[Rfam]
RNA sequence: UAUUUCCUGAAGUGUUCGAAUAACCUGUAUUUUUGAACCUACAGAAUUAAUAAGGGAGUUCGAAUCACAAAGUCUAUGCCAGGCCUCCGUUUGUAGAGGAAGGCAGAAGCUUUGGUGAGAACACCCACCUAGCGUAGCUAGGGAUCAAAAAGCAGGGAAACGGCAUUUCGGGAACUGU
Numbered sequence: 001u002a003u004u005u006c007c008u009g010a011a012g013u014g015u016u017c018g019a020a021u022a023a024c025c026u027g028u029a030u031u032u033u034u035g036a037a038c039c040u041a042c043a044g045a046a047u048u049a050a051u052a053a054g055g056g057a058g059u060u061c062g063a064a065u066c067a068c069a070a071a072g073u074c075u076a077u078g079c080c081a082g083g084c085c086u087c088c089g090u091u092u093g094u095a096g097a098g099g100a101a102g103g104c105a106g107a108a109g110c111u112u113u114g115g116u117g118a119g120a121a122c123a124c125c126c127a128c129c130u131a132g133c134g135u136a137g138c139u140a141g142g143g144a145u146c147a148a149a150a151a152g153c154a155g156g157g158a159a160a161c162g163g164c165a166u167u168u169c170g171g172g173a174a175c176u177g178u
Stems, first nucleotide, its partner, number of pairs: 002176001004174012017162002030151003034147003038143002054126003058122004068114006079103002084099004

The record is a 178-nucleotide RNA from Natranaerovirga pectinivora, which matches "6S / SsrS RNA" in Rfam. Pairs were carried over by alignment from the consensus structure, which is taken from published work. The source organism's lineage runs through Bacteria, Clostridia, Lachnospirales, Natranaerovirgaceae and Natranaerovirga. From the family's description: E. coli 6S RNA was the first non coding RNA to be sequenced, but its function was unknown until recently. It consists of 184 nucleotides that fold into an extended hairpin structure with a large single-stranded internal bulge. The 6S RNA specifically associates with RNA polymerase holoenzyme containing the sigma70 specificity factor. This interaction represses expression from a sigma70-dependent promoter during stationary phase. 6S RNA homologs have recently been identified in most bacterial genomes. Many Gram-positive species have two copies of 6S RNA. In Bacillus subtilis, both copies appear to interact with RNA polymerase holoenzyme containing the housekeeping sigma factor and be expressed during different stages of growth. In many proteobacteria, 6S RNA may be processed from a transcript encoding homologs of the E. coli YgfA protein which is a putative 5-formyltetrahydrofolate cycloligase activity.